RNA sequence: CCGCGGGUCCGGGCCCCUCUGGCGCGAUGCGGCGCGAUGUCGGACUCCGCUU
Number, nucleotide and partner (000 for none) at each position: 001c000002c000003g000004c000005g000006g046007g045008u044009c043010c042011g041012g040013g000014c000015c000016c000017c000018u000019c000020u000021g000022g035023c034024g033025c032026g000027a000028u000029g000030c000031g000032g025033c024034g023035c022036g000037a000038u000039g000040u012041c011042g010043g009044a008045c007046u006047c000048c000049g000050c000051u000052u000

The record is a 52-nucleotide RNA sequence from Falsiroseomonas bella, which matches "terC RNA" in Rfam. The match comes from Rfam's covariance-model search (48 bits). NCBI's taxonomy places the organism under Bacteria, Pseudomonadati, Pseudomonadota, Acetobacterales, Falsiroseomonas.